RNA sequence: AUCGCUUCUCGGCCUUUUGGCUAAGAUCAAAGUGUAGUAUCUGUUCUUAUCAGCUUAAUAUCUGAUACGAUCCCCAUGUGGGAUCUACGAUAUUAAACUGAUUUUUGGAAAAUGGCGAAGUGCUAGGGGCUUGCUCCACCUUUGCCGCGAUCGGCCCGGUAUUGCAGUACCUCCGGGAUUGGUCCACUCCCU
Numbered sequence: 001a002u003c004g005c006u007u008c009u010c011g012g013c014c015u016u017u018u019g020g021c022u023a024a025g026a027u028c029a030a031a032g033u034g035u036a037g038u039a040u041c042u043g044u045u046c047u048u049a050u051c052a053g054c055u056u057a058a059u060a061u062c063u064g065a066u067a068c069g070a071u072c073c074c075c076a077u078g079u080g081g082g083a084u085c086u087a088c089g090a091u092a093u094u095a096a097a098c099u100g101a102u103u104u105u106u107g108g109a110a111a112a113u114g115g116c117g118a119a120g121u122g123c124u125a126g127g128g129g130c131u132u133g134c135u136c137c138a139c140c141u142u143u144g145c146c147g148c149g150a151u152c153g154g155c156c157c158g159g160u161a162u163u164g165c166a167g168u169a170c171c172u173c174c175g176g177g178a179u180u181g182g183u184c185c186a187c188u189c190c191c192u
Stems, first nucleotide, its partner, number of pairs: 007026003011022004048067006069085006114146007126137004149184005155177005
Notes:
This 192-nucleotide RNA from Penaeus vannamei belongs to the Rfam family "U2 spliceosomal RNA". U2 is a small nuclear RNA (snRNA) component of the spliceosome (involved in pre-mRNA splicing). Complementary binding between U2 snRNA (in an area lying towards the 5' end but 3' to hairpin I) and the branchpoint sequence (BPS) of the intron results the bulging out of an unpaired adenosine, on the BPS, which initiates a nucleophilic attack at the intronic 5' splice site, thus starting the first of two transesterification reactions that mediate splicing.